[Rfam]
RNA sequence: UCAUCAUCACCAUCAUCCCUAAUCGUCUUUCGGGGAGAUGAGCGCGUACCCGGGAGACAGGAUUCUCUCGGAGGUUAACAUCUAAAGAUUUUUGUUAAAACCCUCGGGAGCAUACCUCCCGAGGGUUUUUUCUU
Numbered sequence: 001u002c003a004u005c006a007u008c009a010c011c012a013u014c015a016u017c018c019c020u021a022a023u024c025g026u027c028u029u030u031c032g033g034g035g036a037g038a039u040g041a042g043c044g045c046g047u048a049c050c051c052g053g054g055a056g057a058c059a060g061g062a063u064u065c066u067c068u069c070g071g072a073g074g075u076u077a078a079c080a081u082c083u084a085a086a087g088a089u090u091u092u093u094g095u096u097a098a099a100a101c102c103c104u105c106g107g108g109a110g111c112a113u114a115c116c117u118c119c120c121g122a123g124g125g126u127u128u129u130u131u132c133u134u
Stems, first nucleotide, its partner, number of pairs: 009047002011040004017034003021030001049071002052069006097129014